The family of this 112-nucleotide RNA sequence from Luteimicrobium subarcticum is "Glycine riboswitch aptamer".
Pairs were carried over by alignment from the consensus structure.
Gene Ontology term of the family: glycine biosynthetic process.

RNA sequence: CGAACCGUGUCGGGAGAGUCCGGCUGUCGUCCGCCUCGCGCGGUCGUCGUCCGGCGCCGAAGGAGCAAGUCCUCCCCGGGAAUCUCUCAGGCCCCCGUACCGGCACGGCGAG
Numbered sequence: 001c002g003a004a005c006c007g008u009g010u011c012g013g014g015a016g017a018g019u020c021c022g023g024c025u026g027u028c029g030u031c032c033g034c035c036u037c038g039c040g041c042g043g044u045c046g047u048c049g050u051c052c053g054g055c056g057c058c059g060a061a062g063g064a065g066c067a068a069g070u071c072c073u074c075c076c077c078g079g080g081a082a083u084c085u086c087u088c089a090g091g092c093c094c095c096c097g098u099a100c101c102g103g104c105a106c107g108g109c110g111a112g
Stems, first nucleotide, its partner, number of pairs: 006107008020054004056092003059088002063086003070078001
Dot-bracket structure: .....((((((((......((((...........................)))).(((((..(((....(.......).....))))).))).......)))))))).....